[Rfam]
RNA sequence: UAAUAUUAUGGGAACAAACUUUAAGAAACAUUUGAGUAAACUGCACCACCAGUACUUUGCCUAUGUAUGUGUUGCAUUAUUUUUUUUGCACCAUUAAUAUUAUAAA
Numbered sequence: 001u002a003a004u005a006u007u008a009u010g011g012g013a014a015c016a017a018a019c020u021u022u023a024a025g026a027a028a029c030a031u032u033u034g035a036g037u038a039a040a041c042u043g044c045a046c047c048a049c050c051a052g053u054a055c056u057u058u059g060c061c062u063a064u065g066u067a068u069g070u071g072u073u074g075c076a077u078u079a080u081u082u083u084u085u086u087u088g089c090a091c092c093a094u095u096a097a098u099a100u101u102a103u104a105a106a
Stems, first nucleotide, its partner, number of pairs: 006096001008094004012089001016083001017081002021035005036058001040053003063077005
Dot-bracket structure: .....(.(((((...(((..(((((.....)))))(...(((........)))....)....(((((.....)))))..)).).....).)))).)..........
A member of the RNA family "Mitochondrial DNA control region secondary structure A" from Sphenodon punctatus, 106 nucleotides long. A search with the family's covariance model found it, with a score of 40 bits. Pairs were carried over by alignment from the consensus structure, which is taken from published work. The literature on the family includes a 2008 paper in Mol Biol Evol by Pereira et al., "Evidence for variable selective pressures at a large secondary structure of the human mitochondrial DNA control region".